[Rfam]
This 94-nucleotide RNA from Aspergillus aculeatus belongs to the Rfam family "A. fumigatus snoRNA Afu_263".

RNA sequence: CUUGAUGAUGAACAACCUACCAAUAAGCAUAGUUCACCUGAGGUCUCGGACCGCUGAACGAAAACCGUAUACCAUCUUUCAAUUUUAUCUGAUA
Numbered sequence: 001c002u003u004g005a006u007g008a009u010g011a012a013c014a015a016c017c018u019a020c021c022a023a024u025a026a027g028c029a030u031a032g033u034u035c036a037c038c039u040g041a042g043g044u045c046u047c048g049g050a051c052c053g054c055u056g057a058a059c060g061a062a063a064a065c066c067g068u069a070u071a072c073c074a075u076c077u078u079u080c081a082a083u084u085u086u087a088u089c090u091g092a093u094a
Base pairs, nucleotide, nucleotide: 006019008018010016032059033058034057035056036055042052043051044050045049
The literature on the family includes a 2008 paper in Nucleic Acids Res by Jochl et al., "Small ncRNA transcriptome analysis from Aspergillus fumigatus suggests a novel mechanism for regulation of protein synthesis".